[Rfam]
RNA sequence: CUGGUGUCGGUGCUGGGGAGCGGCCCCCGGGCGGGCCUCUGCCCCUCCUGGAGCCCGCACUCUAGCUCCGGGUCCG
Numbered sequence: 001c002u003g004g005u006g007u008c009g010g011u012g013c014u015g016g017g018g019a020g021c022g023g024c025c026c027c028c029g030g031g032c033g034g035g036c037c038u039c040u041g042c043c044c045c046u047c048c049u050g051g052a053g054c055c056c057g058c059a060c061u062c063u064a065g066c067u068c069c070g071g072g073u074c075c076g
Base pairs, nucleotide, nucleotide: 003074004073005072007071008070009069010068012066013065015063016062017061018060020058021057022056023055025053027051028050029049030048031047033044034043035042036041
RNA: mir-1343 microRNA precursor family